[Rfam]
RNA sequence: AUCUUUAUGCAAGGGCAUUACGUGUAUCAGUGAGGAUUCGUCCGAGAUCAUGUUUUUGCUGGUUGAAAACUUUCAACUCGACUGCUUUCAUUUGAACUUAGCUUUGUCUUUGGUCACUUGAGGAAUUUUUGGAAACUUACUUA
Numbered sequence: 001a002u003c004u005u006u007a008u009g010c011a012a013g014g015g016c017a018u019u020a021c022g023u024g025u026a027u028c029a030g031u032g033a034g035g036a037u038u039c040g041u042c043c044g045a046g047a048u049c050a051u052g053u054u055u056u057u058g059c060u061g062g063u064u065g066a067a068a069a070c071u072u073u074c075a076a077c078u079c080g081a082c083u084g085c086u087u088u089c090a091u092u093u094g095a096a097c098u099u100a101g102c103u104u105u106g107u108c109u110u111u112g113g114u115c116a117c118u119u120g121a122g123g124a125a126u127u128u129u130u131g132g133a134a135a136c137u138u139a140c141u142u143a
Base pairs, nucleotide, nucleotide: 020053021052022051023050024049026048027047028046034043035042036041086123087122088121089120090119093116094115095114097112

Rfam assigns this 143-nucleotide RNA from Ogataea arabinofermentans to the family "U4 spliceosomal RNA". On this family, see Zwieb, Nucleic Acids Res 1997: "The uRNA database". Rfam classes the family as a spliceosomal small nuclear RNA. Lineage of the source: Eukaryota > Opisthokonta > Dikarya > Pichiomycetes > Ogataea.